[Rfam]
The record is a 578-nucleotide part of an RNA from Sulfolobales archaeon HS-7, which matches "Archaeal large subunit ribosomal RNA" in Rfam. It scores 2848 bits against the family's covariance model.

RNA sequence: CCCUCCACACCGAGAGAAGACCCCGUGGAGCUUCACCGCAGCCUGGCGCUGAUUUUCGGGCGCUCAUACGUAGAGUAGGUGGGAGGCGUCGAAGCUGUCCCUUCGGGGGCAGUGGAGCCAAAAGUGAAACACCACCUAUGGGUGCUCGGAAGUCUAACCUCGUAAGAGGAACAACGUCAGGUGGGCGGUUCGGCUGGGGCGGCACUCCCGCGAAAAGAUAACACGGGAGCCCAAAGGUCGGCUCAGGCGGUACAGAACGCCGCCGUAGAGUGCAAGGGCAAAAGCCGGCCUGAUGGAACCCUUCAAAGUACGGGGUUCCGGCGCGAAAGCGUGGCCUAGCGAACGCUCAUGCCCCCACGAGUGGGGGCUGGGCAUGACAGAAAAGUUACCCCGGGGAUAACAGAGUCGUCGCGGGCGAGAGCUCCCAUCGACCCCGCGGUUUGCUACCUCGAUGUCGGCUCUUCCCAUCCUGGAGGUGCAGCAGCCUCCAAGGGUAGGGCUGCCCGCCCAUUAAUGGGGAACGUGAGCUGGGUUUAGACCGUCGCGAGACAGGUCGGGCUCUAAGGGUGGAGGGUGCA
Dot-bracket structure: ((((((((.((..((......((((.(((((((.((((...(((((((..((((((((((((((((((.........(((((..(((.........(((((....)))))......)))............)))))))))))))))))))))))...((((....)))).....)))))))....))))..((((.....))).)(((((.............)))))..((....((((((((.((((((.......))))))...))((......))....))))))....(((((((((.........))))))))).(.(....).).))..........(((((.(.((((.......)))))))))).........)))))..))))))........(((.((((((((...((.......))...)))))))..))))..........(((((((((((..((..(((((......)))))....))..((((.....))))......)))))..)..)))).).....(((((((....))).))))....))...))))))))))....